Annotation:
The record is a 205-nucleotide RNA from Nocardia cyriacigeorgica, which matches "Actinobacteria sRNA Ms_IGR-5" in Rfam.

RNA sequence: ACACAAGGAAGGAGGUGGUCUGAAGAAUGUUUGACUCUUGGACACGUGAGGUGGCUGCCCGCUAAGGCACCACCGCUGUACGGAUUCCGUUCGGCAUGGCGCUGAUAGCGAAUCCCAGGCAGUCACCCGGCCCCCGAGUCCCCGAUCUUGUCCGAUCGGGACCGAUGUGCCCCGGCACACCGGUACGGCUCGGGGGUCGUUCCAU
Numbered sequence: 001a002c003a004c005a006a007g008g009a010a011g012g013a014g015g016u017g018g019u020c021u022g023a024a025g026a027a028u029g030u031u032u033g034a035c036u037c038u039u040g041g042a043c044a045c046g047u048g049a050g051g052u053g054g055c056u057g058c059c060c061g062c063u064a065a066g067g068c069a070c071c072a073c074c075g076c077u078g079u080a081c082g083g084a085u086u087c088c089g090u091u092c093g094g095c096a097u098g099g100c101g102c103u104g105a106u107a108g109c110g111a112a113u114c115c116c117a118g119g120c121a122g123u124c125a126c127c128c129g130g131c132c133c134c135c136g137a138g139u140c141c142c143c144g145a146u147c148u149u150g151u152c153c154g155a156u157c158g159g160g161a162c163c164g165a166u167g168u169g170c171c172c173c174g175g176c177a178c179a180c181c182g183g184u185a186c187g188g189c190u191c192g193g194g195g196g197u198c199g200u201u202c203c204a205u
Stems, first nucleotide, its partner, number of pairs: 014059006060110005067102002070099003128199013141160006

Rfam classes the family as a small RNA. The literature on the family includes a 2013 paper in RNA by Li et al., "Identification of small RNAs in Mycobacterium smegmatis using heterologous Hfq". Lineage of the source: Bacteria > Bacillati > Actinomycetota > Actinomycetes > Nocardia cyriacigeorgica.